[Rfam]
This 161-nucleotide RNA from Lactococcus lactis belongs to the Rfam family "M-box riboswitch aptamer (ykoK leader)". The sequence is in the family's curated seed alignment. The base pairs follow the family's consensus structure. The organism belongs to Lactococcus lactis subsp. lactis, within Bacteria.
RNA sequence: CUAACCAUCGGUAGGUGAGGCUACCACAGGGAUACGGGUUGCUGCCGCAGAGUCGUGGAGACACGAUGAGAGGGCCAACAGUUCACGUCGAAAAAAGAAGGCGUGAAAUAGUGCAACAACAUCGCCCUGCGGAGCUAAAGCUUGAACGAUACUGGGUACUU
Numbered sequence: 001c002u003a004a005c006c007a008u009c010g011g012u013a014g015g016u017g018a019g020g021c022u023a024c025c026a027c028a029g030g031g032a033u034a035c036g037g038g039u040u041g042c043u044g045c046c047g048c049a050g051a052g053u054c055g056u057g058g059a060g061a062c063a064c065g066a067u068g069a070g071a072g073g074g075c076c077a078a079c080a081g082u083u084c085a086c087g088u089c090g091a092a093a094a095a096a097g098a099a100g101g102c103g104u105g106a107a108a109u110a111g112u113g114c115a116a117c118a119a120c121a122u123c124g125c126c127c128u129g130c131g132g133a134g135c136u137a138a139a140g141c142u143u144g145a146a147c148g149a150u151a152c153u154g155g156g157u158a159c160u161u
Stems, first nucleotide, its partner, number of pairs: 006156001008154001010147001012099001014142003019136003024132002027129005038117005044075003053066002056063002082107003087102003